[Rfam]
RNA sequence: AUAUAAAUAGGGAAUGAAAGUCUCCCGUGACAUAAAUGUCUAAACCGCUAUAUGCUGAUGACUUCUGUAAUUGC
Numbered sequence: 001a002u003a004u005a006a007a008u009a010g011g012g013a014a015u016g017a018a019a020g021u022c023u024c025c026c027g028u029g030a031c032a033u034a035a036a037u038g039u040c041u042a043a044a045c046c047g048c049u050a051u052a053u054g055c056u057g058a059u060g061a062c063u064u065c066u067g068u069a070a071u072u073g074c
Base pairs, nucleotide, nucleotide: 010026011025012024013023016065017064018063021060047055048054
Fluoride riboswitch aptamer (crcB RNA motif): a 74-nucleotide sequence from Clostridium neonatale. The base pairs follow the family's consensus structure, which is taken from published work. The source organism's lineage runs through Bacteria, Bacillati, Bacillota, Clostridia and Clostridium.